[Rfam]
RNA sequence: AACAUAAAUGAGAAAAUCACCAAUAUAAUUUGGGCGAUAUGGGCCUAAAGUUUCUACCGAACAACCGUAAAUUGUUCGACUAUUGGGAAUAUAUUUCACUCC
Numbered sequence: 001a002a003c004a005u006a007a008a009u010g011a012g013a014a015a016a017u018c019a020c021c022a023a024u025a026u027a028a029u030u031u032g033g034g035c036g037a038u039a040u041g042g043g044c045c046u047a048a049a050g051u052u053u054c055u056a057c058c059g060a061a062c063a064a065c066c067g068u069a070a071a072u073u074g075u076u077c078g079a080c081u082a083u084u085g086g087g088a089a090u091a092u093a094u095u096u097c098a099c100u101c102c
Stems, first nucleotide, its partner, number of pairs: 020086006029049007058078007